[Rfam]
RNA sequence: GUUAUUUGAGGUGGUAGACUUCGUCCGGACCACACGCCGAUGGCAAGACAGGGAAACCGAGAGAUGCAGGAGAAACGGACGCCUGCCAAAUGAC
Numbered sequence: 001g002u003u004a005u006u007u008g009a010g011g012u013g014g015u016a017g018a019c020u021u022c023g024u025c026c027g028g029a030c031c032a033c034a035c036g037c038c039g040a041u042g043g044c045a046a047g048a049c050a051g052g053g054a055a056a057c058c059g060a061g062a063g064a065u066g067c068a069g070g071a072g073a074a075a076c077g078g079a080c081g082c083c084u085g086c087c088a089a090a091u092g093a094c
Stems, first nucleotide, its partner, number of pairs: 001094008011033005023080005035061001036044003066086005
Annotation:
The record is a 94-nucleotide RNA, which matches "skipping-rope RNA" in Rfam. Rfam classes the family as a small RNA.